About this RNA:
Rfam assigns this 177-nucleotide sequence from Sporomusa termitida to the family "Lysine riboswitch aptamer". Pairs were carried over by alignment from the consensus structure, which is taken from published work. The match comes from Rfam's covariance-model search (103 bits).
[Rfam]
RNA sequence: UUUUCUGAUAGAGGUUGCGGAGGACCAACAGUAAGUAUGCAGAGCUGGCAGCGAUGAUGGUACUGAAAGGGGCGGACCGCCGAAGUGAAAGUUUUGCCGAAAAUUUUUGCUGGUUUUACGUUUAAGAAAUGUAAGACUGUCACCUGCUGAUAUUACAGGUGGAGCGCUAUCUUGCAC
Numbered sequence: 001u002u003u004u005c006u007g008a009u010a011g012a013g014g015u016u017g018c019g020g021a022g023g024a025c026c027a028a029c030a031g032u033a034a035g036u037a038u039g040c041a042g043a044g045c046u047g048g049c050a051g052c053g054a055u056g057a058u059g060g061u062a063c064u065g066a067a068a069g070g071g072g073c074g075g076a077c078c079g080c081c082g083a084a085g086u087g088a089a090a091g092u093u094u095u096g097c098c099g100a101a102a103a104u105u106u107u108u109g110c111u112g113g114u115u116u117u118a119c120g121u122u123u124a125a126g127a128a129a130u131g132u133a134a135g136a137c138u139g140u141c142a143c144c145u146g147c148u149g150a151u152a153u154u155a156c157a158g159g160u161g162g163a164g165c166g167c168u169a170u171c172u173u174g175c176a177c
Stems, first nucleotide, its partner, number of pairs: 007171005017080004023073001025071001034064005040059002084111012112138011140162007
Taxonomically the source falls in Sporomusa (Bacteria, Negativicutes, Selenomonadales, Sporomusaceae).
Its family is annotated with lysine biosynthetic process in the Gene Ontology.